The record is a 160-nucleotide RNA from Bacillus atrophaeus, which matches "SurC sRNA" in Rfam. The family's RNA type in Rfam is small RNA. A reference for the family is Silvaggi et al. (2006), "Genes for small, noncoding RNAs under sporulation control in Bacillus subtilis", J Bacteriol. It is one of the family's seed sequences.
RNA sequence: GUAUCACUUUGAAUUGUAUUUUUUCAAUUCCUUUUAUCCCGGGCAAGAAAAAAAGUCAAAGCCAAGAGAUGCCUGACUUUGACUUUCUAACCAUUGAAUCAGUUUGUGAAAAGCAGUUCUUUUGGAUGCCCGCCGGAUGGACGGGCUUCCGAAAAAACUU
Number, nucleotide and partner (000 for none) at each position: 001g000002u000003a000004u109005c108006a107007c106008u000009u102010u101011g100012a099013a000014u097015u096016g094017u093018a000019u000020u090021u089022u050023u049024u048025c047026a000027a000028u000029u000030c043031c042032u041033u000034u000035u000036a000037u000038c000039c000040c000041g032042g031043g030044c000045a000046a000047g025048a024049a023050a022051a000052a086053a085054a084055g083056u082057c081058a080059a079060a078061g077062c000063c000064a000065a074066g073067a000068g000069a000070u000071g000072c000073c066074u065075g000076a000077c061078u060079u059080u058081g057082a056083c055084u054085u053086u052087c000088u000089a021090a020091c000092c000093a017094u016095u000096g015097a014098a000099u012100c011101a010102g009103u000104u000105u000106g007107u006108g005109a004110a000111a000112a000113g000114c000115a159116g158117u157118u156119c000120u154121u153122u152123u000124g000125g149126a148127u000128g146129c145130c144131c143132g142133c140134c139135g000136g000137a000138u000139g134140g133141a000142c132143g131144g130145g129146c128147u000148u126149c125150c000151g000152a122153a121154a120155a000156a118157a117158c116159u115160u000